[Rfam]
RNA sequence: ACGCACGAUGCCAACCCCGGGCUCCUCCGAGGUUGAACGUUGACGAUGGCAAGCCCCAAUGCUCGUGCUAGAUCGAGACGCCGUUCGUGUUGCAGCUUAGCUUCACUCUUGUGUCCGUAGCUUUGAUCUGUGUCAAUUCAAACGGCUACAUCU
Numbered sequence: 001a002c003g004c005a006c007g008a009u010g011c012c013a014a015c016c017c018c019g020g021g022c023u024c025c026u027c028c029g030a031g032g033u034u035g036a037a038c039g040u041u042g043a044c045g046a047u048g049g050c051a052a053g054c055c056c057c058a059a060u061g062c063u064c065g066u067g068c069u070a071g072a073u074c075g076a077g078a079c080g081c082c083g084u085u086c087g088u089g090u091u092g093c094a095g096c097u098u099a100g101c102u103u104c105a106c107u108c109u110u111g112u113g114u115c116c117g118u119a120g121c122u123u124u125g126a127u128c129u130g131u132g133u134c135a136a137u138u139c140a141a142a143c144g145g146c147u148a149c150a151u152c153u
Base pairs, nucleotide, nucleotide: 003068004067005066006065007064008063010062011061019056020055021054022053023052024049025048026046027045080146081145082144083143084142085141088135089134091132092131093130094129095128100121101120102119

Notes
small nucleolar RNA snoR134: a 153-nucleotide RNA from Rhodamnia argentea. The family's consensus secondary structure was predicted with RNAalifold. A search with the family's covariance model found it, with a score of 92 bits.